[Rfam]
RNA sequence: CCAAGUCCCGACGCACAUCCCCCCGGCGCCGGGACUUUCCCCGAGCCGGGCUUCGGUGCCUCUCCCCCCAGGCGCCGGGGCCCGGCUCCUCU
Numbered sequence: 001c002c003a004a005g006u007c008c009c010g011a012c013g014c015a016c017a018u019c020c021c022c023c024c025g026g027c028g029c030c031g032g033g034a035c036u037u038u039c040c041c042c043g044a045g046c047c048g049g050g051c052u053u054c055g056g057u058g059c060c061u062c063u064c065c066c067c068c069c070a071g072g073c074g075c076c077g078g079g080g081c082c083c084g085g086c087u088c089c090u091c092u
Stems, first nucleotide, its partner, number of pairs: 005035006012028003043088010054077008
The record is a 92-nucleotide RNA from Actinobacteria bacterium OV320, which matches "Streptomyces RNA 3202" in Rfam. Rfam's curators write: Identified by deep sequencing of transcriptome at the end of exponential growth phase. By type it is a small RNA. The literature on the family includes a 2011 paper in RNA Biol by Vockenhuber et al., "Deep sequencing-based identification of small non-coding RNAs in Streptomyces coelicolor". A search with the family's covariance model found it, with a score of 84 bits. The source organism's lineage runs through Bacteria, Bacillati, Actinomycetota and Actinomycetes. The base pairs follow the family's consensus structure.